[Rfam]
RNA: Iron response element I
RNA sequence: GGCGUUCCUGCUUCAACAGUGCUUGAACGGAACGCA
Numbered sequence: 001g002g003c004g005u006u007c008c009u010g011c012u013u014c015a016a017c018a019g020u021g022c023u024u025g026a027a028c029g030g031a032a033c034g035c036a
Stems, first nucleotide, its partner, number of pairs: 002035007010028001012027005017021001